[Rfam]
A member of the RNA family "U1A polyadenylation inhibition element (PIE)" from Eptatretus burgeri, 68 nucleotides long. From the family's description: This family represents the U1A polyadenylation inhibition element (PIE). PIE is a regulatory RNA which is responsible for the regulation of the length of the polyA tail of the U1A pre-mRNA. The PIE is located in the U1A mRNA 3' UTR. PIE adopts a U-shaped structure, with binding sites for a single U1A protein at each bend and when complexed with the two proteins it blocks activity of poly(A) polymerase (PAP), and inhibits its activity. The literature on the family includes a 2004 paper in Biochemistry by Clerte and Hall, "Global and Local Dynamics of the U1A Polyadenylation Inhibition Element (PIE) RNA and PIE RNA-U1A Complexes".

RNA sequence: GUGUGAAGCCUUGCACCCAGAGUCUGUAAACAGACAUCGCACCUGGAGCUUCUUUUUAAGAGUUGUGU
Numbered sequence: 001g002u003g004u005g006a007a008g009c010c011u012u013g014c015a016c017c018c019a020g021a022g023u024c025u026g027u028a029a030a031c032a033g034a035c036a037u038c039g040c041a042c043c044u045g046g047a048g049c050u051u052c053u054u055u056u057u058a059a060g061a062g063u064u065g066u067g068u
Base pairs, nucleotide, nucleotide: 005052006051007050008049009048017046018045019044020043022035023034024033025032026031